[Rfam]
RNA sequence: CCAGAUAAAGGCAAACCAAUUGAAAAAUUGGGACGCAAAGCUACGGGUCUAAGGCAUAGAGAUAAAAAGAUAGAUGCUAAGAUGGCUGAGCCGCCUGAG
Numbered sequence: 001c002c003a004g005a006u007a008a009a010g011g012c013a014a015a016c017c018a019a020u021u022g023a024a025a026a027a028u029u030g031g032g033a034c035g036c037a038a039a040g041c042u043a044c045g046g047g048u049c050u051a052a053g054g055c056a057u058a059g060a061g062a063u064a065a066a067a068a069g070a071u072a073g074a075u076g077c078u079a080a081g082a083u084g085g086c087u088g089a090g091c092c093g094c095c096u097g098a099g
Base pairs, nucleotide, nucleotide: 001099003096004095011036012035016031017030018029019028020027021026034085040091041090042089044088045087046086047083048082049081
RNA: c-di-GMP-I-GGC riboswitch aptamer